[Rfam]
RNA sequence: AUAAUGAUACUUCAAUAGUUUAAGCUGCCUCGUCUGGAAGAAGGGGCAGAGGUGAGAUUCCUAUGU
Number, nucleotide and partner (000 for none) at each position: 001a000002u000003a000004a000005u000006g000007a000008u000009a000010c000011u000012u063013c024014a000015a000016u000017a000018g000019u000020u000021u000022a000023a000024g013025c049026u048027g047028c000029c045030u044031c043032g000033u000034c000035u000036g000037g000038a000039a000040g000041a000042a000043g031044g030045g029046g000047c027048a026049g025050a062051g061052g060053u000054g000055a000056g000057a000058u000059u000060c052061c051062u050063a012064u000065g000066u000
pemK RNA: a 66-nucleotide RNA sequence. Pairs were carried over by alignment from the consensus structure, which is taken from published work.